RNA: small nucleolar RNA snoR135
Organism: Mikania micrantha
RNA sequence: GAAGAAGAGAUUGUGUGUAUUGGCGUUGUACUUAGUCGAUGCACUUUGAUCGUAAGAGUUAUUUGCGAUAACAAUUUGAUAAGGUGAAGAUGGGCAAUUGUGUUCUAAUUUUUCAAUUGGAAUCUUCAAUAAUCAUUUUCUCCACAUUU
Numbered sequence: 001g002a003a004g005a006a007g008a009g010a011u012u013g014u015g016u017g018u019a020u021u022g023g024c025g026u027u028g029u030a031c032u033u034a035g036u037c038g039a040u041g042c043a044c045u046u047u048g049a050u051c052g053u054a055a056g057a058g059u060u061a062u063u064u065g066c067g068a069u070a071a072c073a074a075u076u077u078g079a080u081a082a083g084g085u086g087a088a089g090a091u092g093g094g095c096a097a098u099u100g101u102g103u104u105c106u107a108a109u110u111u112u113u114c115a116a117u118u119g120g121a122a123u124c125u126u127c128a129a130u131a132a133u134c135a136u137u138u139u140c141u142c143c144a145c146a147u148u149u
Stems, first nucleotide, its partner, number of pairs: 004066001006064003010060001015044006083143002086140008097130004